Shown here is a 100-nucleotide RNA sequence from Neogobius melanostomus, a member of the family "Z30 small nucleolar RNA". It scores 70 bits against the family's covariance model. On this family, see Galardi et al., Mol Cell Biol 2002: "Purified box C/D snoRNPs are able to reproduce site-specific 2'-O-methylation of target RNA in vitro".
RNA sequence: UGGCAAUGAUGAAUGUGCAGAGACUGACCUGGUAUUGCUGUCUUCUGGGGCUGCUCUGACCAGGACAUGAUCUGAUAUGUUCAAUCUUCUCUCUGAGCUC
Numbered sequence: 001u002g003g004c005a006a007u008g009a010u011g012a013a014u015g016u017g018c019a020g021a022g023a024c025u026g027a028c029c030u031g032g033u034a035u036u037g038c039u040g041u042c043u044u045c046u047g048g049g050g051c052u053g054c055u056c057u058g059a060c061c062a063g064g065a066c067a068u069g070a071u072c073u074g075a076u077a078u079g080u081u082c083a084a085u086c087u088u089c090u091c092u093c094u095g096a097g098c099u100c
Stems, first nucleotide, its partner, number of pairs: 003098002037054002040051001
Gene Ontology terms of the family: RNA processing and nucleolus.